RNA: SAM/SAH riboswitch aptamer
Organism: Rhodovulum sp. BSW8
RNA sequence: GAACCGUCACAACGGCUUCCUGGCGUGGCGGGGAUAGCAUCAACGGAGCG
Numbered sequence: 001g002a003a004c005c006g007u008c009a010c011a012a013c014g015g016c017u018u019c020c021u022g023g024c025g026u027g028g029c030g031g032g033g034a035u036a037g038c039a040u041c042a043a044c045g046g047a048g049c050g
Stems, first nucleotide, its partner, number of pairs: 004031007013022002015049003019046002